[Rfam]
RNA sequence: UGUCCUGCGAGGUGUCUUGCAGGCCGUCAUGCAGGCCACACUGACGGUAACGUUGCAGGUCGUCUUGCAGGGCUUCUCGCAAGACG
Dot-bracket structure: ((((.(((((((.((((((((((.((.(.((((((((........)))....))))).).)).)))))))))).))))))).))))
Numbered sequence: 001u002g003u004c005c006u007g008c009g010a011g012g013u014g015u016c017u018u019g020c021a022g023g024c025c026g027u028c029a030u031g032c033a034g035g036c037c038a039c040a041c042u043g044a045c046g047g048u049a050a051c052g053u054u055g056c057a058g059g060u061c062g063u064c065u066u067g068c069a070g071g072g073c074u075u076c077u078c079g080c081a082a083g084a085c086g
Stems, first nucleotide, its partner, number of pairs: 001086004006081007014073010025062002028059001030057005035048003